The record is a 110-nucleotide sequence from Solihabitans fulvus, which matches "mraW RNA" in Rfam.
It scores 60 bits against the family's covariance model.
NCBI's taxonomy places the organism under Bacteria, Bacillati, Actinomycetota, Actinomycetes, Solihabitans.
RNA sequence: UGACUCGGGUGCCGUGAGGCCUCGGUCCGCUCGGCUAUCGGCCCUGGCGCACCUUCCCCGGCGCCAGGUUCGACGGGCGGGCGGGGACCUGACGACACCCAACCCGGAGG
Numbered sequence: 001u002g003a004c005u006c007g008g009g010u011g012c013c014g015u016g017a018g019g020c021c022u023c024g025g026u027c028c029g030c031u032c033g034g035c036u037a038u039c040g041g042c043c044c045u046g047g048c049g050c051a052c053c054u055u056c057c058c059c060g061g062c063g064c065c066a067g068g069u070u071c072g073a074c075g076g077g078c079g080g081g082c083g084g085g086g087a088c089c090u091g092a093c094g095a096c097a098c099c100c101a102a103c104c105c106g107g108a109g110g
Stems, first nucleotide, its partner, number of pairs: 010097002013094003018089002021086003025082008038073004043068008

By type it is a cis-regulatory element.